This 413-nucleotide RNA from Labrenzia sp. THAF82 belongs to the Rfam family "Bacterial RNase P class A". It is annotated as a ribozyme. Gene Ontology terms of the family: tRNA processing, ribonuclease P activity and dimeric ribonuclease P complex.
RNA sequence: CCAGUCGGCCGGACAGCCGCUGCCGCAAACGCCGAAAGGUUGCGGGGGAGGAAAGUCCGGGCUCCAAGGAAACACGGUGCCGGGUAACGCCCGGCGAGGGCGACCUUAGGGAAAGUGCCACAGAAAGCAAACCGCUCCGGUCCGAUCGCAAGAUUGUAUCGGAGUAAGGGUGAAAGGGUGGAGUAAGAGCCCACCGCGCUGCUGGCAACAGCAGCGGCAUGGUAAACCCCACCGGGAGCAAGACCGAAUAGGGACAGUAUUGGGCCAUGGAGCGAUCCUGGCCCGGGUCGGUUUCCAGACCAACUGUCCGGGUUGGUUGCGUGAGGUGCCUGGCAACAGGUGCCCCAGACGAAUGGCUGUCACGUCCGCGGAUGCGGGCCAUACAGAACCCGGCUUACAGGCCGGCUGGCACU
Numbered sequence: 001c002c003a004g005u006c007g008g009c010c011g012g013a014c015a016g017c018c019g020c021u022g023c024c025g026c027a028a029a030c031g032c033c034g035a036a037a038g039g040u041u042g043c044g045g046g047g048g049a050g051g052a053a054a055g056u057c058c059g060g061g062c063u064c065c066a067a068g069g070a071a072a073c074a075c076g077g078u079g080c081c082g083g084g085u086a087a088c089g090c091c092c093g094g095c096g097a098g099g100g101c102g103a104c105c106u107u108a109g110g111g112a113a114a115g116u117g118c119c120a121c122a123g124a125a126a127g128c129a130a131a132c133c134g135c136u137c138c139g140g141u142c143c144g145a146u147c148g149c150a151a152g153a154u155u156g157u158a159u160c161g162g163a164g165u166a167a168g169g170g171u172g173a174a175a176g177g178g179u180g181g182a183g184u185a186a187g188a189g190c191c192c193a194c195c196g197c198g199c200u201g202c203u204g205g206c207a208a209c210a211g212c213a214g215c216g217g218c219a220u221g222g223u224a225a226a227c228c229c230c231a232c233c234g235g236g237a238g239c240a241a242g243a244c245c246g247a248a249u250a251g252g253g254a255c256a257g258u259a260u261u262g263g264g265c266c267a268u269g270g271a272g273c274g275a276u277c278c279u280g281g282c283c284c285g286g287g288u289c290g291g292u293u294u295c296c297a298g299a300c301c302a303a304c305u306g307u308c309c310g311g312g313u314u315g316g317u318u319g320c321g322u323g324a325g326g327u328g329c330c331u332g333g334c335a336a337c338a339g340g341u342g343c344c345c346c347a348g349a350c351g352a353a354u355g356g357c358u359g360u361c362a363c364g365u366c367c368g369c370g371g372a373u374g375c376g377g378g379c380c381a382u383a384c385a386g387a388a389c390c391c392g393g394c395u396u397a398c399a400g401g402c403c404g405g406c407u408g409g410c411a412c413u
Stems, first nucleotide, its partner, number of pairs: 001409010011398001012361007020048002023045006053396003057393005062238004075234005080094005095109001096107004110229002115227002117223003132169002134165008177195005196218001197216008242318004252309006288302001290300001292298001325344008
Dot-bracket structure: ((((((((((((((((((.((.((((((...........)))))).))....[[[.[[[[[((((.........((((((((((.....)))))(((((....)))).)((...(((((............((((((((((................))))))))..)).......(((((.........)))))(((((((((....)))))))).)..)))..)))))))))))))...((((......((((((..............................(.(.(.....).).).)))))).....))))......((((((((....))))))))..........)))))))...........................]]]]]]]].).))))))))))....